[Rfam]
RNA sequence: GCCUCGAUCCGGGCCCCUCUGGCGAGAGGGCGGAACGCCGUGCCGGCGCCCCCGCCCCCGUGAUGUCGGAUCAGCUAC
Numbered sequence: 001g002c003c004u005c006g007a008u009c010c011g012g013g014c015c016c017c018u019c020u021g022g023c024g025a026g027a028g029g030g031c032g033g034a035a036c037g038c039c040g041u042g043c044c045g046g047c048g049c050c051c052c053c054g055c056c057c058c059c060g061u062g063a064u065g066u067c068g069g070a071u072c073a074g075c076u077a078c
Stems, first nucleotide, its partner, number of pairs: 006072007022061003026057001029056005
RNA: terC RNA
Organism: Acetobacteraceae bacterium AT-5844